Rfam assigns this 110-nucleotide RNA from Dorea phocaeensis to the family "THF (Tetrahydrofolate) riboswitch aptamer". Rfam's curators write: Tetrahydrofolate (THF) riboswitch was first reported for Ames et al. as an RNA motif in 5' untranslated (5'-UTR)regions of folate transport and biosynthesis genes in Firmicutes genomes. The source organism's lineage runs through Bacteria, Bacillati, Lachnospirales, Lachnospiraceae and Dorea.
[Rfam]
RNA sequence: AGCAGAGUAGGAAGAUGUGCGUUAAGUGCCAGCCGGACGGGGAGUUGCCGGCAGGACGAAAAGCAAUCAACAAUGGAUUGUUUGCGGUACAUGUUCCGCAUCCCGCUGCU
Numbered sequence: 001a002g003c004a005g006a007g008u009a010g011g012a013a014g015a016u017g018u019g020c021g022u023u024a025a026g027u028g029c030c031a032g033c034c035g036g037a038c039g040g041g042g043a044g045u046u047g048c049c050g051g052c053a054g055g056a057c058g059a060a061a062a063g064c065a066a067u068c069a070a071c072a073a074u075g076g077a078u079u080g081u082u083u084g085c086g087g088u089a090c091a092u093g094u095u096c097c098g099c100a101u102c103c104c105g106c107u108g109c110u
Base pairs, nucleotide, nucleotide: 001110002109003108004107005106010097011096012095013094015092016091017090018089019088020086021085022084026057027056029055030054032052033051034050035049036048040103041102042101044099061083062082063081064080065079066078067077068076